[Rfam]
RNA sequence: AUCGUUAUCUAGAGCAGUGGGCUUUUAAUCAAUGGGUCGCAGGUUCGAGCCGAGCGAAGCGAGACGACAACGCGCAGCGUUGCCCGGAGGGCGAGUCAAACCCGUAUUUCCCCAUUUUUACCCUUU
Numbered sequence: 001a002u003c004g005u006u007a008u009c010u011a012g013a014g015c016a017g018u019g020g021g022c023u024u025u026u027a028a029u030c031a032a033u034g035g036g037u038c039g040c041a042g043g044u045u046c047g048a049g050c051c052g053a054g055c056g057a058a059g060c061g062a063g064a065c066g067a068c069a070a071c072g073c074g075c076a077g078c079g080u081u082g083c084c085c086g087g088a089g090g091g092c093g094a095g096u097c098a099a100a101c102c103c104g105u106a107u108u109u110c111c112c113c114a115u116u117u118u119u120a121c122c123c124u125u126u
Stems, first nucleotide, its partner, number of pairs: 016116006033093002037091002044088004051061002068082006
A member of the RNA family "RtT RNA" from Chimaeribacter arupi, 126 nucleotides long. The literature on the family includes a 1991 paper in Nucleic Acids Res by Bosl and Kersten, "A novel RNA product of the tyrT operon of Escherichia coli". The match comes from Rfam's covariance-model search (48 bits). Rfam describes the family as follows. This family represents a bacterial cis-regulatory element known as RtT RNA. The exact function of RtT is unknown although it is thought that it may be involved in changing the cellular response in relation to amino acid starvation. The family's consensus secondary structure is taken from published work.